[Rfam]
RNA sequence: CUACAUCUAGAUCCAUACCCCUAAACUCCCUAGAUGUUUUUGGACAGCACGAUUAGCUGUCCUUUUUUU
Dot-bracket structure: ...((((((.....................)))))).....(((((((.......))))))).......

Shown here is a 69-nucleotide RNA from Bacillus sp. FJAT-49711, a member of the family "Listeria sRNA sbrA". NCBI's taxonomy places the organism under Bacteria, Bacillati, Bacillota, Caryophanales, Bacillus. On this family, see Toledo-Arana et al., Nature 2009: "The Listeria transcriptional landscape from saprophytism to virulence". By type it is a small RNA. The family's consensus secondary structure was predicted with WAR.